[Rfam]
RNA sequence: AAAGUUGCAUAUGCCACAGCCAUGGAUUGGUUUAUCGCUGUAUGUUUUGCCUUU
Numbered sequence: 001a002a003a004g005u006u007g008c009a010u011a012u013g014c015c016a017c018a019g020c021c022a023u024g025g026a027u028u029g030g031u032u033u034a035u036c037g038c039u040g041u042a043u044g045u046u047u048u049g050c051c052u053u054u
Stems, first nucleotide, its partner, number of pairs: 001054003007050002011046001013045002016041005022035005